RNA sequence: GAAUAUAAAUUAAGAAAUGCUCGUAUAUCAUCGGUGAUAUGGACCGAAAGUUUCUACCUGCUAACCGUAAAUAGGCAGACUACGAGGUAUUGGAUUUGAAAA
Numbered sequence: 001g002a003a004u005a006u007a008a009a010u011u012a013a014g015a016a017a018u019g020c021u022c023g024u025a026u027a028u029c030a031u032c033g034g035u036g037a038u039a040u041g042g043a044c045c046g047a048a049a050g051u052u053u054c055u056a057c058c059u060g061c062u063a064a065c066c067g068u069a070a071a072u073a074g075g076c077a078g079a080c081u082a083c084g085a086g087g088u089a090u091u092g093g094a095u096u097u098g099a100a101a102a
Base pairs, nucleotide, nucleotide: 020086021085022084023083024082025081031047032046033045034044035043058078059077060076061075062074064072